[Rfam]
A member of the RNA family "mir-15 microRNA precursor family" from Clupea harengus, 87 nucleotides long.
RNA sequence: ACCUGCCCCGCUUUAGCAGCACGUAAAUAUUGGUGUGUAGAGAAAGCCUAACCCCAAUAUUACUUGUGCUGCUUCAGUAUGGCAGGG
Dot-bracket structure: .(((((........(((((((((..((((((((.((..............)).))))))))...)))))))))........))))).

From the family's description: This family represents the related mir-15a and mir-15b sequences. In humans miR-15a and miR-16 are clustered within 0.5 kb at 13q14. This region has been shown to be deleted in more than half of B cell chronic lymphocytic leukaemias (CLL). A search with the family's covariance model found it, with a score of 71 bits. Lineage of the source: Eukaryota > Bilateria > Neopterygii > Clupeocephala > Clupea.